RNA sequence: AGCUGCCGCGUGUACCUUUCCUCCCGGUGCCGCCAGCUGUUCCCCUCUGGAGGUUCACACCUUCACAUCUCAUGGGCCGCAACUACCCAGCGGCCCAUUUUU
Numbered sequence: 001a002g003c004u005g006c007c008g009c010g011u012g013u014a015c016c017u018u019u020c021c022u023c024c025c026g027g028u029g030c031c032g033c034c035a036g037c038u039g040u041u042c043c044c045c046u047c048u049g050g051a052g053g054u055u056c057a058c059a060c061c062u063u064c065a066c067a068u069c070u071c072a073u074g075g076g077c078c079g080c081a082a083c084u085a086c087c088c089a090g091c092g093g094c095c096c097a098u099u100u101u102u
Base pairs, nucleotide, nucleotide: 001038002037003036004035005034007032008031048065049064050063051062052061053060054059073097074096075095076094077093078092080090